[Rfam]
RNA sequence: AAUCCCUUUUAAAUGCAGUCCCGUGAGGCUGCCAAAGGGUCUUCGGUUUGCCAUGCCUGUUUUGGCAUGCUCAGGGACUCUUUGUGCAGCGCACGAAGAGUUUUUUUUA
Numbered sequence: 001a002a003u004c005c006c007u008u009u010u011a012a013a014u015g016c017a018g019u020c021c022c023g024u025g026a027g028g029c030u031g032c033c034a035a036a037g038g039g040u041c042u043u044c045g046g047u048u049u050g051c052c053a054u055g056c057c058u059g060u061u062u063u064g065g066c067a068u069g070c071u072c073a074g075g076g077a078c079u080c081u082u083u084g085u086g087c088a089g090c091g092c093a094c095g096a097a098g099a100g101u102u103u104u105u106u107u108u109a
Base pairs, nucleotide, nucleotide: 004039005038006037007036008035009034015032016031017030018029019028020027045071046070047069049067050066051065052064053063074104075103076102077101078100079099080098081097082096083095084094085093086092087091
The record is a 109-nucleotide RNA from Ectobacillus ponti, which matches "PyrR binding site" in Rfam. Rfam classes the family as a cis-regulatory element. The family's consensus secondary structure is taken from published work. This family represents the PyrR binding site and terminator structure. This RNA structure is found upstream of a variety of genes involved in pyrimidine biosynthesis and transport. The alignment also includes a portion of the antiterminator structure. The organism belongs to Ectobacillus, within Bacteria.